c-di-GMP-I riboswitch aptamer: an 86-nucleotide sequence from Papillibacter cinnamivorans. The family's consensus secondary structure is taken from published work. Taxonomically the source falls in Papillibacter cinnamivorans (Bacteria, Bacillati, Oscillospiraceae, Papillibacter). It scores 86 bits against the family's covariance model.
[Rfam]
RNA sequence: GAGCGAUAAUAGCAAACCUGCCGAAAGGCAGGGACGCAAAACCAAGGGUCUAAAAUCCGGAAGGAUUAAGACAGCCGGUUGCCGAA
Numbered sequence: 001g002a003g004c005g006a007u008a009a010u011a012g013c014a015a016a017c018c019u020g021c022c023g024a025a026a027g028g029c030a031g032g033g034a035c036g037c038a039a040a041a042c043c044a045a046g047g048g049u050c051u052a053a054a055a056u057c058c059g060g061a062a063g064g065a066u067u068a069a070g071a072c073a074g075c076c077g078g079u080u081g082c083c084g085a086a
Base pairs, nucleotide, nucleotide: 012037013036017032018031019030020029021028022027040080041079042078043077046076047075048072049071050070055066056065057064058063